[Rfam]
RNA: SAM-I/IV (S-adenosyl methionine) riboswitch aptamer
Nucleotides: 131
Stems, first nucleotide, its partner, number of pairs: 007097004015035001017034007036064003041060003044056003048127005100115004
Number, partner (000 for none) and nucleotide at each position: 001000g002000a003000u004000g005000u006000u007097c008096a009095u010094c011000a012000g013000g014000a015035g016000a017034g018033g019032u020031c021030u022029g023028a024000g025000c026000a027000a028023u029022c030021a031020g032019a033018c034017c035015c036064g037063g038062c039000a040000a041060c042059c043058u044056g045055g046054g047000c048127g049126g050125a051124a052123g053000c054046c055045c056044c057000a058043a059042g060041g061000u062038g063037c064036c065000u066000c067000c068000c069000a070000a071000u072000c073000g074000a075000g076000c077000c078000u079000u080000c081000g082000g083000g084000u085000c086000u087000g088000a089000a090000a091000g092000g093000g094010g095009a096008u097007g098000u099000g100115g101114u102113c103112a104000g105000c106000a107000a108000u109000a110000a111000c112103u113102g114101g115100c116000a117000a118000c119000g120000a121000a122000a123052c124051u125050u126049c127048c128000u129000g130000g131000a